[Rfam]
RNA sequence: GAAGGCUGCGGCAAUGGAUUCUGCCGGGCGCAAAGCCGAACCGCCAUAAGGGCUGAUGAUUCCUAACCUUUU
Numbered sequence: 001g002a003a004g005g006c007u008g009c010g011g012c013a014a015u016g017g018a019u020u021c022u023g024c025c026g027g028g029c030g031c032a033a034a035g036c037c038g039a040a041c042c043g044c045c046a047u048a049a050g051g052g053c054u055g056a057u058g059a060u061u062c063c064u065a066a067c068c069u070u071u072u
Base pairs, nucleotide, nucleotide: 010025011024012023013022016063017062018061020059021058043053044052045051
Source information:
Fluoride riboswitch aptamer (crcB RNA motif): a 72-nucleotide sequence from Methylobacterium sp. Leaf93. Taxonomically the source falls in Methylobacterium (Bacteria, Alphaproteobacteria, Hyphomicrobiales, Methylobacteriaceae). The base pairs follow the family's consensus structure, which is taken from published work. The literature on the family includes a 2012 paper in Nature by Ren et al., "Fluoride ion encapsulation by Mg2+ ions and phosphates in a fluoride riboswitch". The match comes from Rfam's covariance-model search (43 bits).